[Rfam]
RNA sequence: GGUCAAGAGCGCCAGCGCGAAGCCCCGGCUCGCUGGCCGGCAACCCUCCACCGCGAGUGGGGUGCCCCGGGUGAGGACCAGGCCGCGCCGGCCCCGGCGCGGCAAGCGCGGACC
Numbered sequence: 001g002g003u004c005a006a007g008a009g010c011g012c013c014a015g016c017g018c019g020a021a022g023c024c025c026c027g028g029c030u031c032g033c034u035g036g037c038c039g040g041c042a043a044c045c046c047u048c049c050a051c052c053g054c055g056a057g058u059g060g061g062g063u064g065c066c067c068c069g070g071g072u073g074a075g076g077a078c079c080a081g082g083c084c085g086c087g088c089c090g091g092c093c094c095c096g097g098c099g100c101g102g103c104a105a106g107c108g109c110g111g112a113c114c
Stems, first nucleotide, its partner, number of pairs: 001079004009038001011037006021030002039066003044062003048057001049055001082103009
RNA: SAM (S-adenosyl methionine) riboswitch aptamer
Organism: Pseudokineococcus lusitanus